[Rfam]
RNA: MIR2912 microRNA precursor family
Organism: Populus tomentosa
RNA sequence: UCUAGAACUCAAGAUAUGGACUGAACACUGAACAAUGUCUGGGUUGUAGGAUAGAUUCGGACUUCUCCGUUGUCGUUAUAAUUUGGACUUGAAAACGACUUUUUUAGAUCUUUGACUCCAUAUGAAAGUUAUAGGCCUAUGCCUUACGGAAUCUGUG
Numbered sequence: 001u002c003u004a005g006a007a008c009u010c011a012a013g014a015u016a017u018g019g020a021c022u023g024a025a026c027a028c029u030g031a032a033c034a035a036u037g038u039c040u041g042g043g044u045u046g047u048a049g050g051a052u053a054g055a056u057u058c059g060g061a062c063u064u065c066u067c068c069g070u071u072g073u074c075g076u077u078a079u080a081a082u083u084u085g086g087a088c089u090u091g092a093a094a095a096c097g098a099c100u101u102u103u104u105u106a107g108a109u110c111u112u113u114g115a116c117u118c119c120a121u122a123u124g125a126a127a128g129u130u131a132u133a134g135g136c137c138u139a140u141g142c143c144u145u146a147c148g149g150a151a152u153c154u155g156u157g
Stems, first nucleotide, its partner, number of pairs: 003155004008148001009146001011145003015141005021134003025130001027129003035123003041119003045115001048112005054105002059100002063097001072088003